[Rfam]
RNA sequence: AAUACGGAAGCCGAAAAGUAAAUUAGAGUAGGCA
Numbered sequence: 001a002a003u004a005c006g007g008a009a010g011c012c013g014a015a016a017a018g019u020a021a022a023u024u025a026g027a028g029u030a031g032g033c034a
Stems, first nucleotide, its partner, number of pairs: 003020003010033003
About this RNA:
Shown here is a 34-nucleotide RNA sequence from Polaribacter sp. SA4-12, a member of the family "DUF805b RNA". It is annotated as a cis-regulatory element.